[Rfam]
RNA sequence: AUCUACACUGAGUAGCCAGAUUAUUAUGAUCUCUGAACGAAUAAUAAUCUGGCUACUCAGUGUAUCU
Number, nucleotide and partner (000 for none) at each position: 001a000002u000003c000004u064005a063006c062007a061008c060009u059010g058011a057012g056013u055014a054015g053016c052017c051018a000019g049020a048021u047022u046023a045024u044025u043026a042027u041028g000029a000030u000031c000032u000033c000034u000035g000036a000037a000038c000039g000040a000041a027042u026043a025044a024045u023046a022047a021048u020049c019050u000051g017052g016053c015054u014055a013056c012057u011058c010059a009060g008061u007062g006063u005064a004065u000066c000067u000
Record summary:
This 67-nucleotide sequence from Pipistrellus kuhlii belongs to the Rfam family "mir-9256 microRNA precursor family". It scores 82 bits against the family's covariance model. Gene Ontology terms of the family: RISC complex and miRNA-mediated post-transcriptional gene silencing. The organism belongs to Pipistrellus, within Eukaryota. The base pairs follow the family's consensus structure, which was predicted with RNAalifold.